[Rfam]
Annotation
A member of the RNA family "Small nucleolar RNA SNORA43" from Pteropus alecto, 131 nucleotides long. The family is grouped with related families in Rfam's "SNORA17 clan". The family has 21 seed sequences and 492 matches in Rfam 15.1. ACA43 is a member of the H/ACA class of snoRNA that guide the sites of modification of uridines to pseudouridines.

RNA sequence: GAUGCUGGACCUGCUGGCACCACAGACACAGCUGCUGUGCUGCACCUAUGAUAUUAGGGCAAAGAAGUAGCUAUUUCUACACUCAGUGCCCAGAACAGUGGGCACUAAGAAUGGUCUGUAGCCUAACACUC
Number, nucleotide and partner (000 for none) at each position: 001g000002a000003u061004g060005c057006u056007g055008g054009a000010c000011c000012u000013g000014c000015u000016g000017g000018c000019a000020c000021c000022a049023c000024a047025g046026a000027c000028a000029c000030a000031g000032c000033u000034g000035c000036u000037g000038u000039g000040c000041u000042g000043c000044a000045c000046c025047u024048a000049u022050g000051a000052u000053a000054u008055u007056a006057g005058g000059g000060c004061a003062a000063a000064g000065a000066a000067g000068u000069a000070g122071c121072u000073a000074u000075u000076u000077c114078u113079a112080c000081a000082c109083u108084c000085a000086g000087u104088g103089c102090c101091c100092a099093g000094a000095a000096c000097a000098g000099u092100g091101g090102g089103c088104a087105c000106u000107a000108a083109g082110a000111a000112u079113g078114g077115u000116c000117u000118g000119u000120a000121g071122c070123c000124u000125a000126a000127c000128a000129c000130u000131c000